[Rfam]
RNA sequence: UUGCUGUGAUGAUUUUCAUUGGGUUUCGCAUGUUGCUGACUUCCGAUGAUGCCUCUUCUCUUGGCUGUCUGAGCAA
Numbered sequence: 001u002u003g004c005u006g007u008g009a010u011g012a013u014u015u016u017c018a019u020u021g022g023g024u025u026u027c028g029c030a031u032g033u034u035g036c037u038g039a040c041u042u043c044c045g046a047u048g049a050u051g052c053c054u055c056u057u058c059u060c061u062u063g064g065c066u067g068u069c070u071g072a073g074c075a076a
Stems, first nucleotide, its partner, number of pairs: 001076004